Small nucleolar RNA SNORA11: a 111-nucleotide RNA from Otolemur garnettii. On this family, see Gu et al., Nucleic Acids Res 2005: "A novel experimental approach for systematic identification of box H/ACA snoRNAs from eukaryotes". Rfam 15.1 lists 2,014 matches to the family in 202 species. By type it is an H/ACA-box small nucleolar RNA. The organism belongs to Otolemur, within Eukaryota. The match comes from Rfam's covariance-model search (69 bits). From the family's description: U107 (SNORA11) is a member of the H/ACA class of snoRNAs that guide the sites of modification of uridines to pseudouridines. This snoRNA was identified by RT-PCR from blood cells and its expression confirmed by Northern blot analysis. There is no predicted target for this guide snRNA.
RNA sequence: GGGGUGUGCUCCGAGCAGGGGGCCUGUUUAUAACACACCGGGCAGGAAUCUGGGGUCAUUGUGGUGAGCGGCACAGAACUUGUGGCCUCCCCAGAGGAAUUCCCUCCAUGA
Numbered sequence: 001g002g003g004g005u006g007u008g009c010u011c012c013g014a015g016c017a018g019g020g021g022g023c024c025u026g027u028u029u030a031u032a033a034c035a036c037a038c039c040g041g042g043c044a045g046g047a048a049u050c051u052g053g054g055g056u057c058a059u060u061g062u063g064g065u066g067a068g069c070g071g072c073a074c075a076g077a078a079c080u081u082g083u084g085g086c087c088u089c090c091c092c093a094g095a096g097g098a099a100u101u102c103c104c105u106c107c108a109u110g111a
Stems, first nucleotide, its partner, number of pairs: 003039006013029007053104003060097001062095001065093002068088001070086001072084005